L2-Alphaproteobacteria ribosomal protein leader: a 77-nucleotide sequence from Pacificibacter marinus.

RNA sequence: GGGCACCUACGGGGGCCUACACACAGACCUUCAGGGCAACCUGAACAUAAGGUCACAAAGCAAACGGAAGACAGAAA
Numbered sequence: 001g002g003g004c005a006c007c008u009a010c011g012g013g014g015g016c017c018u019a020c021a022c023a024c025a026g027a028c029c030u031u032c033a034g035g036g037c038a039a040c041c042u043g044a045a046c047a048u049a050a051g052g053u054c055a056c057a058a059a060g061c062a063a064a065c066g067g068a069a070g071a072c073a074g075a076a077a
Stems, first nucleotide, its partner, number of pairs: 001018004006014003026054006

For this family Rfam cites "Discovery of 20 novel ribosomal leader candidates in bacteria and archaea" (Eckert and Weinberg, BMC Microbiol, 2020).
The source organism's lineage runs through Bacteria, Pseudomonadati, Pseudomonadota, Alphaproteobacteria and Pacificibacter.